[Rfam]
RNA sequence: CCUCCCGCUUCCCUCCCUGAGCGGGGCCAUGUCGCUUUAUGUGAUAAGGCAUUCUGCCCUGAAGAUAAUCCCCUUUCUUCAGGGCUUUUUUAU
Numbered sequence: 001c002c003u004c005c006c007g008c009u010u011c012c013c014u015c016c017c018u019g020a021g022c023g024g025g026g027c028c029a030u031g032u033c034g035c036u037u038u039a040u041g042u043g044a045u046a047a048g049g050c051a052u053u054c055u056g057c058c059c060u061g062a063a064g065a066u067a068a069u070c071c072c073c074u075u076u077c078u079u080c081a082g083g084g085c086u087u088u089u090u091u092a093u
Base pairs, nucleotide, nucleotide: 004025005024006023007022008021009020027049028048030046031045032044033043056085057084058083059082060081061080062079063078064077065076

A member of the RNA family "Burkholderia RNA 7 (anti-hemB)" from Glaciimonas sp. PCH181, 93 nucleotides long. Rfam 15.1 lists 479 matches to the family in 458 species. For this family Rfam cites "Identification of 22 candidate structured RNAs in bacteria using the CMfinder comparative genomics pipeline" (Weinberg et al., Nucleic Acids Res, 2007). Rfam describes the family as follows. This RNA motif was identified by computational search in b-proteobacteria Burkholderia. Co-purified with Hfq, expression confirmed by Northern blot.